[Rfam]
RNA sequence: CCUGAUGUUUUAAAAUAUGAAUAAUGAUUUUUAACGCAAAUACAAAUUGGUGGUGGCUUUCAAAUCUCGAGGGAUCUGGAAGUUAGCCAAUUGUAUGUGCAUUAAAAAUUAAAAGCAGCUUGUU
Numbered sequence: 001c002c003u004g005a006u007g008u009u010u011u012a013a014a015a016u017a018u019g020a021a022u023a024a025u026g027a028u029u030u031u032u033a034a035c036g037c038a039a040a041u042a043c044a045a046a047u048u049g050g051u052g053g054u055g056g057c058u059u060u061c062a063a064a065u066c067u068c069g070a071g072g073g074a075u076c077u078g079g080a081a082g083u084u085a086g087c088c089a090a091u092u093g094u095a096u097g098u099g100c101a102u103u104a105a106a107a108a109u110u111a112a113a114a115g116c117a118g119c120u121u122g123u124u
Stems, first nucleotide, its partner, number of pairs: 036100003040096006047090001049088003056083002059080004064075003
Shown here is a 124-nucleotide sequence from Membranihabitans marinus, a member of the family "Bacteroidete tryptophan peptide leader RNA". The match comes from Rfam's covariance-model search (50 bits). It is annotated as a cis-regulatory leader. The base pairs follow the family's consensus structure, which is taken from published work.